[Rfam]
RNA sequence: GUUCCAGAGCGAUAGCGCCAAGUACCUAGCUAGCUAUCCGGCAACCCCCCAACCAUUGAGUGGGGUGCCCUAGGGGAAGAACAGAUAUAAGCGUAUCCGCGCUCAUAUAAGUCAAUGGA
Dot-bracket structure: ((((....(.((((((....((.......)).)))))))(((..(((.(..........)..))).))).........))))..((((.(((((....))))).))))...........